[Rfam]
The record is a 139-nucleotide RNA sequence from Rhodopseudomonas palustris, which matches "TPP riboswitch aptamer (THI element)" in Rfam.
From the family's description: Vitamin B(1) in its active form thiamin pyrophosphate (TPP) is an essential coenzyme that is synthesised by coupling of pyrimidine and thiazole moieties in bacteria.
RNA sequence: GCCCGUUCCGAGGGGGGCUCCGACGAGGAGCUGAGAUACCGCACGCUCGCCGCUUCGCUCCGCGAGGCACAGAGACCGCGGUGACCCUUUGAACCUGAUCCGGGUCAUGCCGGCGAAGGGACAGGGAUGCAUCAGACAG
Number, nucleotide and partner (000 for none) at each position: 001g000002c000003c000004c000005g000006u127007u126008c125009c124010g000011a088012g087013g086014g085015g000016g000017g031018c030019u029020c028021c027022g000023a000024c000025g000026a000027g021028g020029a019030g018031c017032u000033g000034a000035g000036a000037u000038a082039c081040c080041g079042c078043a000044c000045g000046c000047u000048c000049g000050c000051c000052g000053c000054u000055u000056c000057g000058c000059u000060c000061c000062g000063c000064g000065a000066g000067g000068c000069a000070c000071a000072g000073a000074g000075a000076c000077c000078g042079c041080g040081g039082u038083g000084a000085c014086c013087c012088u011089u000090u000091g000092a000093a000094c119095c118096u117097g000098a000099u000100c113101c112102g111103g110104g000105u000106c000107a000108u000109g000110c103111c102112g101113g100114c000115g000116a000117a096118g095119g094120g000121a000122c000123a000124g009125g008126g007127a006128u000129g000130c000131a000132u000133c000134a000135g000136a000137c000138a000139g000